Small nucleolar RNA SNORA48: a 141-nucleotide RNA sequence from Peromyscus maniculatus. On this family, see Ofengand and Bakin, J Mol Biol 1997: "Mapping to nucleotide resolution of pseudouridine residues in large subunit ribosomal RNAs from representative eukaryotes, prokaryotes, archaebacteria, mitochondria and chloroplasts". Lineage of the source: Eukaryota > Deuterostomia > Sarcopterygii > Boreoeutheria > Peromyscus maniculatus. Rfam's curators write: The snoRNA ACA 48 has been identified to guide pseudouridylation of the residue U3797 in the 28S rRNA subunit. The match comes from Rfam's covariance-model search (76 bits).

RNA sequence: ACCCCCUGGCAAUGGGCAAAGAGACACCUUGGUGGUGUUGUUCUUAUAUCAGUCAGGGGCAGAGCAGAUGACAGUCCUUUGUUCAUCCUAGCUUGAUGCCUGCCUUGGUGGCCAAAGCUGUUUCAUGCCUAGGGCACAUUU
Dot-bracket structure: ..((((((....(((...(((.((((((.....))))))...)))...)))..))))))....................(((((..........(.(...((...((.(.......).))...)).).)..))))).....